[Rfam]
RNA sequence: AAUGAUGGAGGUGCAGGCAUUUCCUGAGGAUUAAUGACCAGCUGGGAGGAACCAGUGGCCCUUGGCUCUGCCUCCCAGCCAGCCAUUAAUUCCGAGGAAAUGUCUUUUGCUGAGGUCGUU
Numbered sequence: 001a002a003u004g005a006u007g008g009a010g011g012u013g014c015a016g017g018c019a020u021u022u023c024c025u026g027a028g029g030a031u032u033a034a035u036g037a038c039c040a041g042c043u044g045g046g047a048g049g050a051a052c053c054a055g056u057g058g059c060c061c062u063u064g065g066c067u068c069u070g071c072c073u074c075c076c077a078g079c080c081a082g083c084c085a086u087u088a089a090u091u092c093c094g095a096g097g098a099a100a101u102g103u104c105u106u107u108u109g110c111u112g113a114g115g116u117c118g119u120u
Stems, first nucleotide, its partner, number of pairs: 001120006010111004015105011028092009038082001041079009053070003057067004
RNA: mir-763 microRNA precursor family